[Rfam]
RNA: Plastid-psbA-1 3UTR RNA
Organism: Ranunculus repens
RNA sequence: GUUGAAGUUCCAUCUAUAAAUGGCUAAGACUUAGGUCUUAGUGUAUUUUAGUCUUAGUGUAUAUGAGUCGUUGAAGUUGCAGUAGUAAUACCCGACUUCUUGUUCAGACAAGAAGUCGGGUAUUACUACUGCGUU
Numbered sequence: 001g002u003u004g005a006a007g008u009u010c011c012a013u014c015u016a017u018a019a020a021u022g023g024c025u026a027a028g029a030c031u032u033a034g035g036u037c038u039u040a041g042u043g044u045a046u047u048u049u050a051g052u053c054u055u056a057g058u059g060u061a062u063a064u065g066a067g068u069c070g071u072u073g074a075a076g077u078u079g080c081a082g083u084a085g086u087a088a089u090a091c092c093c094g095a096c097u098u099c100u101u102g103u104u105c106a107g108a109c110a111a112g113a114a115g116u117c118g119g120g121u122a123u124u125a126c127u128a129c130u131g132c133g134u135u
Stems, first nucleotide, its partner, number of pairs: 010023004079132013093118003097114005